[Rfam]
RNA: Caulobacter sRNA CrfA
RNA sequence: GAGAGACAUGGCGGCUACUAAGUCCGACAGUCUCCGGCGUUUCGGGGAGGAAACGCCCGCUCUACAAGAGCGACUGCUCAAAAUAAGGCCCGCUGCGAUUAUCCCCCGCAGCGGGCCAAAUUUUUGC
Dot-bracket structure: (.(((((....(((.(.....).)))...))))))((((((((......)))))))).......(((((((....))))......((((((((((((.........)))))))))))...)..))).